A member of the RNA family "SAM riboswitch aptamer (S box leader)" from Terribacillus saccharophilus, 97 nucleotides long.
RNA sequence: CUCUUAUCAAGAGCGGCGGAGGGACUGGCCCGAUGAUGCCCGGCAACCUGCAAGUGUAACUUUAACUUGUAUAGGUGCUAAUUCCUGUAGAUGAGAG
Numbered sequence: 001c002u003c004u005u006a007u008c009a010a011g012a013g014c015g016g017c018g019g020a021g022g023g024a025c026u027g028g029c030c031c032g033a034u035g036a037u038g039c040c041c042g043g044c045a046a047c048c049u050g051c052a053a054g055u056g057u058a059a060c061u062u063u064a065a066c067u068u069g070u071a072u073a074g075g076u077g078c079u080a081a082u083u084c085c086u087g088u089a090g091a092u093g094a095g096a097g
Stems, first nucleotide, its partner, number of pairs: 001097008013041001015040003021031003025087001027085002042079004047075002049071007083089001
Dot-bracket structure: ((((((((....(.(((...(((.[.[[)))......))))((((.(((((((((.........)))))))..))))))...(]].].)))))))))